[Rfam]
RNA sequence: GUGCUACUGCUUCAAAAUAUCGGUGUUGGGUAAAAGGUCACCUUUUAACACAGUACCGAUAUUGUGAAGCACGUUUGC
Numbered sequence: 001g002u003g004c005u006a007c008u009g010c011u012u013c014a015a016a017a018u019a020u021c022g023g024u025g026u027u028g029g030g031u032a033a034a035a036g037g038u039c040a041c042c043u044u045u046u047a048a049c050a051c052a053g054u055a056c057c058g059a060u061a062u063u064g065u066g067a068a069g070c071a072c073g074u075u076u077g078c
Stems, first nucleotide, its partner, number of pairs: 008071007016063008027052002030049001031047005036041001